[Rfam]
RNA sequence: AAUAAACGAGGACGGAACGGGCAGCCGUCGCCACUUGGGUUAAACUCUUGGCCAGAGUCCAAGGUAGGAGAUGUGGGAACAGGUCGCCCCACCUUAUU
Numbered sequence: 001a002a003u004a005a006a007c008g009a010g011g012a013c014g015g016a017a018c019g020g021g022c023a024g025c026c027g028u029c030g031c032c033a034c035u036u037g038g039g040u041u042a043a044a045c046u047c048u049u050g051g052c053c054a055g056a057g058u059c060c061a062a063g064g065u066a067g068g069a070g071a072u073g074u075g076g077g078a079a080c081a082g083g084u085c086g087c088c089c090c091a092c093c094u095u096a097u098u
Base pairs, nucleotide, nucleotide: 001098002097003096004095005094008093011029012028013027014026015025020085021084022083031068033058034057035056036055073092074091075090076089077088
Dot-bracket structure: (((((..(..(((((....[[[..))))).(.((((..................)))).........)....(((((.....]]]..)))))))))))